Shown here is a 128-nucleotide RNA from Chloroceryle aenea, a member of the family "Small nucleolar RNA SNORA47". The literature on the family includes a 2001 paper in EMBO J by Huttenhofer et al., "RNomics: an experimental approach that identifies 201 candidates for novel, small, non-messenger RNAs in mouse".

RNA sequence: UGGAGGACUGAGAAGGUAAGACAGUCAAACUUUAUGCUGUAUCUUACUGGUUAUAGCCUCCAAAAUUAUACUGGUGCAAUGCAACUCAUGUUCCCCUCCUGACAUGAGGGAAAGCUGUACUGCAUUUG
Numbered sequence: 001u002g003g004a005g006g007a008c009u010g011a012g013a014a015g016g017u018a019a020g021a022c023a024g025u026c027a028a029a030c031u032u033u034a035u036g037c038u039g040u041a042u043c044u045u046a047c048u049g050g051u052u053a054u055a056g057c058c059u060c061c062a063a064a065a066u067u068a069u070a071c072u073g074g075u076g077c078a079a080u081g082c083a084a085c086u087c088a089u090g091u092u093c094c095c096c097u098c099c100u101g102a103c104a105u106g107a108g109g110g111a112a113a114g115c116u117g118u119a120c121u122g123c124a125u126u127u128g
Stems, first nucleotide, its partner, number of pairs: 002061005015048004019042001021040005081120001084118002092112001094110003099106001
A search with the family's covariance model found it, with a score of 77 bits. Pairs were carried over by alignment from the consensus structure, which was predicted with WAR. The organism belongs to Chloroceryle, within Eukaryota.